[Rfam]
RNA sequence: CAAACUCAUUGCCCAAGGGGGGAAAGCGGCCAUAUGCGGUAAGUACCUCUUUAACUGGGCAGUGAAGACC
Number, nucleotide and partner (000 for none) at each position: 001c000002a000003a000004a000005c000006u065007c064008a063009u062010u061011g060012c059013c058014c057015a056016a000017g050018g049019g048020g047021g046022g000023a000024a000025a000026g040027c039028g000029g037030c036031c000032a000033u000034a000035u000036g030037c029038g000039g027040u026041a000042a000043g000044u000045a000046c021047c020048u019049c018050u017051u000052u000053a000054a000055c000056u015057g014058g013059g012060c011061a010062g009063u008064g007065a006066a000067g000068a000069c000070c000
Rfam assigns this 70-nucleotide sequence to the family "Hepatitis C virus stem-loop VII".
Rfam's curators put it in the seed alignment.